[Rfam]
RNA: MIR2275 microRNA precursor family
Organism: Malus baccata
RNA sequence: AAGUCGUAUGUGAGAAUUGGAGGGGACUAAACAAAUUGGAUAUCGAUUGAAAAUCCUUAAUUUGUUUAGUUUCCUCCAAUAUCUUAUGUCCGACAU
Numbered sequence: 001a002a003g004u005c006g007u008a009u010g011u012g013a014g015a016a017u018u019g020g021a022g023g024g025g026a027c028u029a030a031a032c033a034a035a036u037u038g039g040a041u042a043u044c045g046a047u048u049g050a051a052a053a054u055c056c057u058u059a060a061u062u063u064g065u066u067u068a069g070u071u072u073c074c075u076c077c078a079a080u081a082u083c084u085u086a087u088g089u090c091c092g093a094c095a096u
Base pairs, nucleotide, nucleotide: 004093005092006091008089011086012085013084014083016080017079018078019077020076021075023073024072025071026070027069028068029067030066032064033063